[Rfam]
Nucleotides: 117
Stems, first nucleotide, its partner, number of pairs: 014081004024075008034043002048067002051064003094117006100110003
Number, partner (000 for none) and nucleotide at each position: 001000g002000c003000g004000a005000u006000g007000a008000g009000c010000u011000a012000a013000c014081u015080u016079g017078c018000a019000u020000a021000a022000g023000c024075c025074g026073a027072a028071g029070g030069a031068c032000a033000a034043g035042c036000a037000u038000c039000u040000u041000u042035g043034c044000u045000a046000a047000a048067c049066g050000u051064u052063u053062g054000g055000a056000u057000g058000u059000g060000g061000c062053c063052a064051a065000a066049c067048g068031g069030u070029c071028c072027u073026u074025c075024g076000c077000c078017g079016c080015a081014g082000g083000u084000a085000c086000g087000c088000a089000u090000c091000a092000a093000a094117g095116a096115c097114g098113c099112c100110g101109g102108c103000a104000u105000u106000u107000u108102g109101c110100c111000a112099g113098g114097c115096g116095u117094c
This 117-nucleotide sequence from Bacillus sp. V5-8f belongs to the Rfam family "BsrF". The source organism's lineage runs through Bacteria, Bacillati, Bacillota, Bacilli and Bacillus. Pairs were carried over by alignment from the consensus structure, which was predicted with WAR. A search with the family's covariance model found it, with a score of 91 bits. For this family Rfam cites "Novel small RNA-encoding genes in the intergenic regions of Bacillus subtilis" (Saito et al., Gene, 2008). It is annotated as a small RNA.